A member of the RNA family "7SK RNA" from Balaenoptera physalus, 323 nucleotides long. A reference for the family is Blencowe (2002), "Transcription: surprising role for an elusive small nuclear RNA", Curr Biol. Taxonomically the source falls in Balaenoptera (Eukaryota, Dipnotetrapodomorpha, Mammalia, Eutheria). Rfam 15.1 lists 49,373 matches to the family in 668 species. The base pairs follow the family's consensus structure, which is taken from published work. Rfam classes the family as a non-coding RNA gene.
RNA sequence: GGGUGUGAAGGCAAUCUGGCUAUGACAUCUGUCACCCCAUCGAUCGCCAGGGUUGAUUUGGCUGAUCUGGCUGGCUAGGUGGGCGUCCCCUUCCUCCCUCACUGCUCCAUGUCCGUCCCUCCUGAAGCCGCACGCUCCGUUGAAGACGGCAACCUUCCCAGGUGGAGGAGGACCACUCUUCAGUCAAGGGUAUAUGAGUAGCAGCAUUCCCCUGCUAGAACCUCCAAAUAAGCUCUCAAGGUCCAGUUAUAGAACAUAGGGUAGUCAAGCUUCCAAGACUUCAGACACAUGCAAAUGAGGCAUGUGGCAGUCUGCCUUGCUAU
Number, nucleotide and partner (000 for none) at each position: 001g108002g107003g106004u000005g102006u101007g100008a099009a000010g097011g096012c000013a000014a092015u000016c000017u000018g090019g089020c000021u000022a000023u000024g087025a086026c085027a000028u083029c082030u081031g080032u079033c078034a000035c074036c073037c070038c069039a068040u000041c000042g067043a066044u065045c064046g062047c061048c060049a000050g000051g000052g000053u000054u000055g000056a000057u000058u000059u000060g048061g047062c046063u000064g045065a044066u043067c042068u039069g038070g037071c000072u000073g036074g035075c000076u000077a000078g033079g032080u031081g030082g029083g028084c000085g026086u025087c024088c000089c019090c018091u000092u014093c000094c000095u000096c011097c010098c000099u008100c007101a006102c005103u000104g000105c000106u003107c002108c001109a000110u000111g000112u000113c000114c000115g000116u171117c170118c168119c167120u166121c165122c139123u000124g137125a136126a000127g135128c134129c000130g000131c000132a000133c000134g128135c127136u125137c124138c000139g122140u161141u160142g159143a000144a000145g000146a000147c000148g157149g156150c000151a000152a000153c000154c000155u000156u149157c148158c000159c142160a141161g140162g000163u000164g000165g121166a120167g119168g118169a000170g117171g116172a000173c000174c000175a000176c000177u000178c000179u000180u000181c000182a000183g000184u000185c000186a000187a000188g000189g000190g000191u000192a000193u000194a000195u000196g000197a000198g000199u000200a000201g270202c269203a000204g000205c000206a000207u264208u263209c000210c261211c260212c259213u258214g257215c000216u000217a000218g000219a000220a000221c000222c252223u000224c000225c000226a000227a000228a250229u249230a248231a247232g000233c000234u000235c000236u000237c000238a000239a000240g000241g000242u000243c000244c000245a000246g000247u231248u230249a229250u228251a000252g222253a000254a000255c000256a000257u214258a213259g212260g211261g210262u000263a208264g207265u000266c000267a000268a000269g202270c201271u000272u000273c000274c000275a000276a000277g000278a000279c000280u000281u000282c000283a000284g000285a000286c000287a000288c000289a000290u000291g000292c000293a323294a000295a321296u000297g318298a317299g316300g315301c314302a311303u310304g000305u000306g000307g000308c000309a000310g303311u302312c000313u000314g301315c300316c299317u298318u297319g000320c000321u295322a000323u293